Annotation: Shown here is an 81-nucleotide sequence, a member of the family "pemK RNA".

RNA sequence: AUAAUGAUACUUCCGUCCAGCCACAGCCAGACGCAAUGGGGGCGGCUUCAUGAGAACCAUGUUGAGGUUAGAGUCCUAUGA
Dot-bracket structure: ...........(((((((.....................))))))(...(((.....)))...)(((.......))))...